[Rfam]
RNA sequence: GAGCCUACCCUAUGGAGCAGGACUUGAUUCAGUGGGGCUUUGAUGCUCACUGAGUCUGCCCUUUGAGUGUGUCACU
Number, nucleotide and partner (000 for none) at each position: 001g075002a000003g073004c000005c071006u000007a000008c000009c067010c000011u065012a064013u000014g062015g061016a000017g059018c058019a057020g000021g056022a055023c054024u000025u000026g000027a000028u000029u053030c052031a051032g050033u049034g048035g047036g046037g044038c000039u000040u000041u000042g000043a000044u037045g000046c036047u035048c034049a033050c032051u031052g030053a029054g023055u022056c021057u019058g018059c017060c000061c015062u014063u000064u012065g011066a000067g009068u000069g000070u000071g005072u000073c003074a000075c001076u000
RNA: mir-9229 microRNA precursor family